A member of the RNA family "Insect-Specific Flavivirus 3' UTR repeats Ra" from Quang Binh virus, 60 nucleotides long.
About the family: 3' UTR in insect specific flavivirus families present three to four repeats of conserved element Ra.
The family's RNA type in Rfam is cis-regulatory element.
The source organism's lineage runs through Viruses, Riboviria, Orthornavirae, Amarillovirales and Quang Binh virus.
[Rfam]
RNA sequence: GCCCCCGCAAGGAGGGACGUGUGCAUCACGUUUCUGGGAGUUAACGGCUCUCCGGCCCCA
Numbered sequence: 001g002c003c004c005c006c007g008c009a010a011g012g013a014g015g016g017a018c019g020u021g022u023g024c025a026u027c028a029c030g031u032u033u034c035u036g037g038g039a040g041u042u043a044a045c046g047g048c049u050c051u052c053c054g055g056c057c058c059c060a
Base pairs, nucleotide, nucleotide: 005055006054007053013035014034015033016032017031018030019029020028036052037051038050039049040048041047